[Rfam]
Rfam assigns this 600-nucleotide part of an RNA from Borreliella burgdorferi to the family "Bacterial large subunit ribosomal RNA". Rfam links the family to the GO terms ribosome and structural constituent of ribosome. Rfam's curators put it in the seed alignment.
RNA sequence: AAGUAUCGGUGAAGAUGCCGAUUACUUGUGGUUAGACGGAAAGACCCCGUGAACCUUUACUAUAGCUUGGUAUUGAGAUUUGAUUAAAUAUGUGUAGGAUAGGUGGGAGACUUUGAAGCUAUCUCGUCAGGGGUAGUGGAGUCAAUCUUGAAAUACCACCCUUGUUUAAUUAGGUUUCUAACUUAUAGAAAUAUGAGGAGAGUGCCAGGUGGGUAGUUUGACUGGGGCGGUCGCCUCCUAAAGAGUAACGGAGGUGCGCAAAGGUUACCUUAGAGUGGUUGGAAAUCACUCUGUAAGUGUAAAGGCAUAAGGUAGCUUAACUGUAAGACUGACAAGUCGAACAGAUACGAAAGUAGGUCUUAGUGAUCUGGCGGUGGCAAGUGGAAGCGCCGUCACUUAACGAAUAAAAGGUACUCCGGGGAUAACAGGCUUAUCCUUCCCAAGAGUUCACAUCGACGGAAGGGUUUGGCACCUCGAUGUCGGCUCAUCGCAUCCUAGGGCUGGAGCAGGUCCUAAGGGUAUGGCUGUUCGCCAUUUAAAGCGGUACGCGAGCUGGGUUCAGAACGUCGUGAGACAGUUUGGUCCCUAUCUGCCACAAGC
Numbered sequence: 001a002a003g004u005a006u007c008g009g010u011g012a013a014g015a016u017g018c019c020g021a022u023u024a025c026u027u028g029u030g031g032u033u034a035g036a037c038g039g040a041a042a043g044a045c046c047c048c049g050u051g052a053a054c055c056u057u058u059a060c061u062a063u064a065g066c067u068u069g070g071u072a073u074u075g076a077g078a079u080u081u082g083a084u085u086a087a088a089u090a091u092g093u094g095u096a097g098g099a100u101a102g103g104u105g106g107g108a109g110a111c112u113u114u115g116a117a118g119c120u121a122u123c124u125c126g127u128c129a130g131g132g133g134u135a136g137u138g139g140a141g142u143c144a145a146u147c148u149u150g151a152a153a154u155a156c157c158a159c160c161c162u163u164g165u166u167u168a169a170u171u172a173g174g175u176u177u178c179u180a181a182c183u184u185a186u187a188g189a190a191a192u193a194u195g196a197g198g199a200g201a202g203u204g205c206c207a208g209g210u211g212g213g214u215a216g217u218u219u220g221a222c223u224g225g226g227g228c229g230g231u232c233g234c235c236u237c238c239u240a241a242a243g244a245g246u247a248a249c250g251g252a253g254g255u256g257c258g259c260a261a262a263g264g265u266u267a268c269c270u271u272a273g274a275g276u277g278g279u280u281g282g283a284a285a286u287c288a289c290u291c292u293g294u295a296a297g298u299g300u301a302a303a304g305g306c307a308u309a310a311g312g313u314a315g316c317u318u319a320a321c322u323g324u325a326a327g328a329c330u331g332a333c334a335a336g337u338c339g340a341a342c343a344g345a346u347a348c349g350a351a352a353g354u355a356g357g358u359c360u361u362a363g364u365g366a367u368c369u370g371g372c373g374g375u376g377g378c379a380a381g382u383g384g385a386a387g388c389g390c391c392g393u394c395a396c397u398u399a400a401c402g403a404a405u406a407a408a409a410g411g412u413a414c415u416c417c418g419g420g421g422a423u424a425a426c427a428g429g430c431u432u433a434u435c436c437u438u439c440c441c442a443a444g445a446g447u448u449c450a451c452a453u454c455g456a457c458g459g460a461a462g463g464g465u466u467u468g469g470c471a472c473c474u475c476g477a478u479g480u481c482g483g484c485u486c487a488u489c490g491c492a493u494c495c496u497a498g499g500g501c502u503g504g505a506g507c508a509g510g511u512c513c514u515a516a517g518g519g520u521a522u523g524g525c526u527g528u529u530c531g532c533c534a535u536u537u538a539a540a541g542c543g544g545u546a547c548g549c550g551a552g553c554u555g556g557g558u559u560c561a562g563a564a565c566g567u568c569g570u571g572a573g574a575c576a577g578u579u580u581g582g583u584c585c586c587u588a589u590c591u592g593c594c595a596c597a598a599g600c
Stems, first nucleotide, its partner, number of pairs: 005022005025599008034591003038586002046420004051416002053412005059217004066209007075178016092161001102160005109143003118137008182197006220232004233255006256401001258358002264316006270296002273291006297306002321344004327338003346355003369395007377388002429470003433467001434464007444454002481556001482554004486548001487545005494519002497514006521535005562580004566575003